[Rfam]
RNA sequence: GGACAGCGAUGAUGCGGAAGGUUGCCGACACACCCGGCCCCUUUGCCAUGGCCGGGGCGGGAAAUUUUCGCGGAGAAGUCCAUUUGCAAAAUGGGCGA
Numbered sequence: 001g002g003a004c005a006g007c008g009a010u011g012a013u014g015c016g017g018a019a020g021g022u023u024g025c026c027g028a029c030a031c032a033c034c035c036g037g038c039c040c041c042u043u044u045g046c047c048a049u050g051g052c053c054g055g056g057g058c059g060g061g062a063a064a065u066u067u068u069c070g071c072g073g074a075g076a077a078g079u080c081c082a083u084u085u086g087c088a089a090a091a092u093g094g095g096c097g098a
Stems, first nucleotide, its partner, number of pairs: 014071003018068004025060003029056001079098002084095002
Description
The record is a 98-nucleotide RNA sequence from Polycladomyces abyssicola, which matches "S10-Clostridia ribosomal protein leader" in Rfam. The literature on the family includes a 2020 paper in BMC Microbiol by Eckert and Weinberg, "Discovery of 20 novel ribosomal leader candidates in bacteria and archaea". By type it is a cis-regulatory leader. Taxonomically the source falls in Polycladomyces (Bacteria, Bacillati, Bacillota, Caryophanales).